RNA sequence: AGGUCCCAAUGAACAUUCAUUGCUGUCGGUGGGUUUAACUCUGAGGACAAGCUCACUGAACAAUGAAUGGAACUGUGGCUCA
Numbered sequence: 001a002g003g004u005c006c007c008a009a010u011g012a013a014c015a016u017u018c019a020u021u022g023c024u025g026u027c028g029g030u031g032g033g034u035u036u037a038a039c040u041c042u043g044a045g046g047a048c049a050a051g052c053u054c055a056c057u058g059a060a061c062a063a064u065g066a067a068u069g070g071a072a073c074u075g076u077g078g079c080u081c082a
Stems, first nucleotide, its partner, number of pairs: 002081002004078002007075002014069009026059006033052004
RNA: mir-181 microRNA precursor family
Organism: Ornithorhynchus anatinus